[Rfam]
RNA sequence: AUCAAAGAUGAUGAAAUCAGAAAAAUCUUAGGACACCUUCUGACACAGUUUGACAAUGCUGUGUAUGAGAACAAUUUUCGUUUCUGAUUUUGAU
Number, nucleotide and partner (000 for none) at each position: 001a094002u093003c092004a091005a090006a088007g000008a000009u000010g000011a000012u000013g000014a000015a000016a000017u000018c000019a000020g000021a000022a000023a000024a000025a000026u000027c000028u000029u000030a000031g000032g000033a000034c000035a000036c000037c000038u000039u000040c000041u047042g046043a000044c000045a000046c042047a041048g000049u000050u000051u000052g000053a000054c000055a000056a000057u000058g000059c000060u000061g000062u000063g000064u000065a000066u000067g000068a000069g000070a000071a000072c000073a000074a000075u000076u000077u000078u000079c000080g000081u000082u000083u000084c000085u000086g000087a000088u006089u000090u005091u004092g003093a002094u001
The record is a 94-nucleotide RNA from Helianthus annuus, which matches "Small nucleolar RNA snoR31/Z110/Z27" in Rfam. On this family, see Barneche et al., J Mol Biol 2001: "Identification of 66 box C/D snoRNAs in Arabidopsis thaliana: extensive gene duplications generated multiple isoforms predicting new ribosomal RNA 2'-O-methylation sites". Taxonomically the source falls in Helianthus (Eukaryota, Embryophyta, Euphyllophyta, Asteraceae). Rfam describes the family as follows. This family contains several related snoRNAs including R31, Z27 and Z110. By type it is a C/D-box small nucleolar RNA. Rfam 15.1 lists 571 matches to the family in 198 species. Rfam links the family to the GO terms nucleolus and RNA processing.